RNA: MIR4371 microRNA precursor family
RNA sequence: CCGUUAAGUGAUGACGUAACAAACAGAAUGUCACAUCUUCGCGUCUUGUCACAAACACCCCAUUAUCACAUCAUCACAUUCAAUAAUGUGGCUAUGACAUGACAGUGAUUGGAUGUGAUGACGUGACACUCUAUUUGUCAUAUCAUCAAUUAACGGAG
Numbered sequence: 001c002c003g004u005u006a007a008g009u010g011a012u013g014a015c016g017u018a019a020c021a022a023a024c025a026g027a028a029u030g031u032c033a034c035a036u037c038u039u040c041g042c043g044u045c046u047u048g049u050c051a052c053a054a055a056c057a058c059c060c061c062a063u064u065a066u067c068a069c070a071u072c073a074u075c076a077c078a079u080u081c082a083a084u085a086a087u088g089u090g091g092c093u094a095u096g097a098c099a100u101g102a103c104a105g106u107g108a109u110u111g112g113a114u115g116u117g118a119u120g121a122c123g124u125g126a127c128a129c130u131c132u133a134u135u136u137g138u139c140a141u142a143u144c145a146u147c148a149a150u151u152a153a154c155g156g157a158g
Stems, first nucleotide, its partner, number of pairs: 001156007009148006016141002019138005025132003029128006036121002039118008048109005056101002070087002073084002